[Rfam]
RNA: RNase MRP
RNA sequence: GCGGCAUUGAGUGUAGUGAAUGGGCCAUGGCCUAGCUUUGCGCUAGGAUUUGGGCUCAGGAAAGUCCCCGGGCCGUGAUCUGCAGAGAUGUAGUCUCAAAAACGGGAAGCGACGUUCGAGAGCCGGAGUCCUAGGCUGAGACGCGUGCGGAGCCUCCGUGGACUCUGGCCCGAAGUUGCAUUGGCCGACCGUCACAGUCAUUCACUAGGCCCAUGCAUCAUCGUAUGGGCAAACAGAACGGGGCUUACAUUUCAGUGGCU
Numbered sequence: 001g002c003g004g005c006a007u008u009g010a011g012u013g014u015a016g017u018g019a020a021u022g023g024g025c026c027a028u029g030g031c032c033u034a035g036c037u038u039u040g041c042g043c044u045a046g047g048a049u050u051u052g053g054g055c056u057c058a059g060g061a062a063a064g065u066c067c068c069c070g071g072g073c074c075g076u077g078a079u080c081u082g083c084a085g086a087g088a089u090g091u092a093g094u095c096u097c098a099a100a101a102a103c104g105g106g107a108a109g110c111g112a113c114g115u116u117c118g119a120g121a122g123c124c125g126g127a128g129u130c131c132u133a134g135g136c137u138g139a140g141a142c143g144c145g146u147g148c149g150g151a152g153c154c155u156c157c158g159u160g161g162a163c164u165c166u167g168g169c170c171c172g173a174a175g176u177u178g179c180a181u182u183g184g185c186c187g188a189c190c191g192u193c194a195c196a197g198u199c200a201u202u203c204a205c206u207a208g209g210c211c212c213a214u215g216c217a218u219c220a221u222c223g224u225a226u227g228g229g230c231a232a233a234c235a236g237a238a239c240g241g242g243g244c245u246u247a248c249a250u251u252u253c254a255g256u257g258g259c260u
Stems, first nucleotide, its partner, number of pairs: 003260003007255004014207006021058006032046005062246003066243004081092004094107004109179003115173002118170001123167001125165001133155004143148001209230008